[Rfam]
RNA sequence: UUAAUUCUGUGAUGAAUGAUUGAGCAGAAGAGUUCUUGAAGACUAUAUUCAUCACCCAAGACUGAAUAUAAC
Dot-bracket structure: (((.......................(((...))).................................))).
Shown here is a 72-nucleotide RNA from Drosophila melanogaster, a member of the family "Small nucleolar RNA CD11". By type it is a C/D-box small nucleolar RNA. The sequence is in the family's curated seed alignment. Lineage of the source: Eukaryota > Protostomia > Ecdysozoa > Panorpida > Sophophora.